A member of the RNA family "Bacterial small subunit ribosomal RNA" from Sulfurihydrogenibium azorense, 598 nucleotides of a longer RNA.

RNA sequence: UGACGGGGACCCGCACAACCGGUGGAGCGUCUGGUUUAAUUCGAUGCUAACCGAAAAACCUUACCAGGGUUUGACAUGCGGUGUGUCGGGUAUGAAAGUACCCUAGGCUAUGAUUAUUCAUAGCCGCGCCGCACAGGUGGUGCAUGGUCGUCGUCAGCUCGUGUCGUGAGAUGUUGGGUUAAGUCCCGCAACGAGCGCAACCCUUGCCCUGUGUUACCAGCGGGUAAAGCCGGGUACUCACAGGGGACUGCCGGCGAUAAGUCGGAGGAAGGAGGGGAUGACGUCAGAUCAGUAUGCCCUUUAUGCCCUGGGCUACACAGGCGCUACAGUGGCAGGGACAAUGGGACGCAACGCAGCAAUGCGGAGCAAAUCCCCUAAACCCUGUCGUGGUGCGGAUUGGGGGUUGCAACUCACCCCCAUGAAGGCGGAAUCGGUAGUAAUGGCGAAUCAGCAAUGUCGCCGUGAAUACGUUCCCGGGUCUUGUACACACCGCCCGUCACGCCAUGGGAGUCGGGUUCAUCGGAAGUCCCCGAGCUAACCCGCAAGGGAGGCAGGGGCCGAUGAUGGGCCUGAUGACUGGGGCGAAGUCGUAACAAGG
Numbered sequence: 001u002g003a004c005g006g007g008g009a010c011c012c013g014c015a016c017a018a019c020c021g022g023u024g025g026a027g028c029g030u031c032u033g034g035u036u037u038a039a040u041u042c043g044a045u046g047c048u049a050a051c052c053g054a055a056a057a058a059c060c061u062u063a064c065c066a067g068g069g070u071u072u073g074a075c076a077u078g079c080g081g082u083g084u085g086u087c088g089g090g091u092a093u094g095a096a097a098g099u100a101c102c103c104u105a106g107g108c109u110a111u112g113a114u115u116a117u118u119c120a121u122a123g124c125c126g127c128g129c130c131g132c133a134c135a136g137g138u139g140g141u142g143c144a145u146g147g148u149c150g151u152c153g154u155c156a157g158c159u160c161g162u163g164u165c166g167u168g169a170g171a172u173g174u175u176g177g178g179u180u181a182a183g184u185c186c187c188g189c190a191a192c193g194a195g196c197g198c199a200a201c202c203c204u205u206g207c208c209c210u211g212u213g214u215u216a217c218c219a220g221c222g223g224g225u226a227a228a229g230c231c232g233g234g235u236a237c238u239c240a241c242a243g244g245g246g247a248c249u250g251c252c253g254g255c256g257a258u259a260a261g262u263c264g265g266a267g268g269a270a271g272g273a274g275g276g277g278a279u280g281a282c283g284u285c286a287g288a289u290c291a292g293u294a295u296g297c298c299c300u301u302u303a304u305g306c307c308c309u310g311g312g313c314u315a316c317a318c319a320g321g322c323g324c325u326a327c328a329g330u331g332g333c334a335g336g337g338a339c340a341a342u343g344g345g346a347c348g349c350a351a352c353g354c355a356g357c358a359a360u361g362c363g364g365a366g367c368a369a370a371u372c373c374c375c376u377a378a379a380c381c382c383u384g385u386c387g388u389g390g391u392g393c394g395g396a397u398u399g400g401g402g403g404u405u406g407c408a409a410c411u412c413a414c415c416c417c418c419a420u421g422a423a424g425g426c427g428g429a430a431u432c433g434g435u436a437g438u439a440a441u442g443g444c445g446a447a448u449c450a451g452c453a454a455u456g457u458c459g460c461c462g463u464g465a466a467u468a469c470g471u472u473c474c475c476g477g478g479u480c481u482u483g484u485a486c487a488c489a490c491c492g493c494c495c496g497u498c499a500c501g502c503c504a505u506g507g508g509a510g511u512c513g514g515g516u517u518c519a520u521c522g523g524a525a526g527u528c529c530c531c532g533a534g535c536u537a538a539c540c541c542g543c544a545a546g547g548g549a550g551g552c553a554g555g556g557g558c559c560g561a562u563g564a565u566g567g568g569c570c571u572g573a574u575g576a577c578u579g580g581g582g583c584g585a586a587g588u589c590g591u592a593a594c595a596a597g598g
Base pairs, nucleotide, nucleotide: 001487002486003484004483005482007481008480009479010478011477012476013475015471016470019434020433021432022431023430024327026325027324028323029322030321031320032319033318034316035315040055041054042053043052064311065310066309067308068307069306070305077133078132080130081129082128083127084126088103089102090101091100092099093098106125107124108123109122110121111120112119113118136300137299139298140297141296142295145294146293147289148288149287150285152283153282157196158195159194160193161192162191163172164171165170175188176187177186178185202277203276204275205274207245208244209243210242211241212240213239217234218233221232222231223230248268249267251265252264253263254262255261331386332385333384334383335382336381337380343374344373345372348367349366353362354361355360393424398419399418400417401416402415403414404413440463441462442461443460444459445458446457490597492594495590496589500584501583502582503581505579506578507577510574511573512572513571514570515569516568517567518566519565520564521563526559528557529556530555531554534552535551536550539548540547

The organism belongs to Sulfurihydrogenibium azorense, within Bacteria.